Rfam assigns this 171-nucleotide RNA from Sorghum bicolor to the family "MIR2118 microRNA precursor family". Its family is annotated with RISC complex and miRNA-mediated post-transcriptional gene silencing in the Gene Ontology.
RNA sequence: GUGAGCUGGGAAGAGGAAGAGAGGGCCUAAGAGCAGUGGGAAUGGGAACAUGGAGGAAAGCCUAUCCUGUUUGUUUCCUCCUCCAGAAACAGAGGUGGAAGCUUGGUCCGGUGUUUCCCAAUGCCUCCCAUUCCUAUUGUUCUUAAGUGCUCCAUCCUUUUCCUUUUGGCU
Dot-bracket structure: ........(((((.((....(((..(.((((((((.(((((((((((.(((.(.((.((((...................................................))))))).)))..))))))))))).)))))))).)..)))..)).))))).........
Source information:
The sequence is in the family's curated seed alignment.